The family of this 314-nucleotide RNA from Halapricum sp. CBA1109 is "Archaeal signal recognition particle RNA". The literature on the family includes a 2002 paper in Curr Opin Struct Biol by Wild et al., "Towards the structure of the mammalian signal recognition particle".

RNA sequence: AAUCGGACUAGGUCGGGCGGUUAGGCCCCGCUCGUACUCCCGCACUAUGGUCUUUAGCGGGGGCCGAACACCGGGGGCGUCCGGUCAGACGGACACGGACCCCGCAAGCCAACGUGGAAGCCUCGUCCGACGGGGGCAGCGGUCCACGCCGUCUCACCUGCAGGGGUGAGCCGUCGUGGUUGGUCGCGGGCACCCCGCCAGGCGCGGAAGCGAGCAGCGGACUCGCGGACACCUGCCGCUCGUCGGGUCGCGGGGUGGAGGAGGUGCGCGGGCCUAUCCGUGUUCGAACGCCGGGCAACCCCGGCCGUCCGUUC
Numbered sequence: 001a002a003u004c005g006g007a008c009u010a011g012g013u014c015g016g017g018c019g020g021u022u023a024g025g026c027c028c029c030g031c032u033c034g035u036a037c038u039c040c041c042g043c044a045c046u047a048u049g050g051u052c053u054u055u056a057g058c059g060g061g062g063g064c065c066g067a068a069c070a071c072c073g074g075g076g077g078c079g080u081c082c083g084g085u086c087a088g089a090c091g092g093a094c095a096c097g098g099a100c101c102c103c104g105c106a107a108g109c110c111a112a113c114g115u116g117g118a119a120g121c122c123u124c125g126u127c128c129g130a131c132g133g134g135g136g137c138a139g140c141g142g143u144c145c146a147c148g149c150c151g152u153c154u155c156a157c158c159u160g161c162a163g164g165g166g167u168g169a170g171c172c173g174u175c176g177u178g179g180u181u182g183g184u185c186g187c188g189g190g191c192a193c194c195c196c197g198c199c200a201g202g203c204g205c206g207g208a209a210g211c212g213a214g215c216a217g218c219g220g221a222c223u224c225g226c227g228g229a230c231a232c233c234u235g236c237c238g239c240u241c242g243u244c245g246g247g248u249c250g251c252g253g254g255g256u257g258g259a260g261g262a263g264g265u266g267c268g269c270g271g272g273c274c275u276a277u278c279c280g281u282g283u284u285c286g287a288a289c290g291c292c293g294g295g296c297a298a299c300c301c302c303g304g305c306c307g308u309c310c311g312u313u314c
Stems, first nucleotide, its partner, number of pairs: 002313001004311005011065004015033006039061005071304006079296004083291001090286010101272005108265003113260001115258001120256007127246008135237005141230001142181001144179005150173002153170007184228007195220004203212003

Source information: The family's RNA type in Rfam is non-coding RNA gene. Clan: SRP clan.